[Rfam]
RNA: UnaL2 LINE 3' element
Nucleotides: 054
Stems, first nucleotide, its partner, number of pairs: 014041003020036006
Number, partner (000 for none) and nucleotide at each position: 001000g002000g003000c004000a005000c006000g007000c008000a009000u010000g011000a012000c013000u014041g015040u016039a017000a018000g019000u020036u021035g022034c023033u024032u025031u026000g027000a028000a029000u030000a031025a032024a033023a034022g035021c036020g037000u038000c039016u040015g041014c042000u043000u044000a045000a046000u047000g048000g049000c050000a051000c052000a053000u054000a